[Rfam]
RNA sequence: CAGAGCUGGGAGCCUCAGGAGGCUGGUGAUGGAAAGCUUGGGGGCAGUGCAGCUGUGAGCCUUCAGCCCUGACUCGUCCA
Dot-bracket structure: ..(((((...((((......))))..........))))).........................................
The record is an 80-nucleotide RNA from Camelus dromedarius, which matches "GRIK4 3 prime UTR element" in Rfam.
The family has 8 seed sequences and 71 matches in Rfam 15.1.
By type it is a non-coding RNA gene.
The base pairs follow the family's consensus structure, which was predicted with CMfinder.
Taxonomically the source falls in Camelus (Eukaryota, Deuterostomia, Gnathostomata, Amniota).
The literature on the family includes a 2008 paper in Proc Natl Acad Sci U S A by Pickard et al., "A common variant in the 3'UTR of the GRIK4 glutamate receptor gene affects transcript abundance and protects against bipolar disorder".